[Rfam]
RNA sequence: CUUUUAUCCAGAGAAGUGGAGGGAUUGGGCCCUAUGAAGCUUCAGCAACAGGCCGUAAGGCACUGUGCUAAAUCCCGCAAGCCGCAAGCUUGGCAGAUAAACG
Numbered sequence: 001c002u003u004u005u006a007u008c009c010a011g012a013g014a015a016g017u018g019g020a021g022g023g024a025u026u027g028g029g030c031c032c033u034a035u036g037a038a039g040c041u042u043c044a045g046c047a048a049c050a051g052g053c054c055g056u057a058a059g060g061c062a063c064u065g066u067g068c069u070a071a072a073u074c075c076c077g078c079a080a081g082c083c084g085c086a087a088g089c090u091u092g093g094c095a096g097a098u099a100a101a102c103g
Stems, first nucleotide, its partner, number of pairs: 001103001003101006013043005021032003026077004044069004049065002051061001053059001073095001078092005
SAM riboswitch aptamer (S box leader): a 103-nucleotide sequence from Salinicoccus roseus.
The family's consensus secondary structure is taken from published work.
Rfam's curators write: The SAM riboswitch is found upstream of a number of genes which code for proteins involved in methionine or cysteine biosynthesis in Gram-positive bacteria.